A member of the RNA family "mir-2816 microRNA precursor family" from Bombyx mori, 72 nucleotides long.
The base pairs follow the family's consensus structure, which was predicted with RNAalifold.
Taxonomically the source falls in Bombyx (Eukaryota, Protostomia, Hexapoda, Obtectomera).
[Rfam]
RNA sequence: CUCAACUCUACUCGAAUGAGGUAGACCCGUGGUAUUGCAUCACCAUGACGUCAUCAGUUUGAGGAAUUUUUU
Numbered sequence: 001c002u003c004a005a006c007u008c009u010a011c012u013c014g015a016a017u018g019a020g021g022u023a024g025a026c027c028c029g030u031g032g033u034a035u036u037g038c039a040u041c042a043c044c045a046u047g048a049c050g051u052c053a054u055c056a057g058u059u060u061g062a063g064g065a066a067u068u069u070u071u072u
Base pairs, nucleotide, nucleotide: 004071005070009065011063012062013061014060015059016058017056018055019054021052028047029046030045031044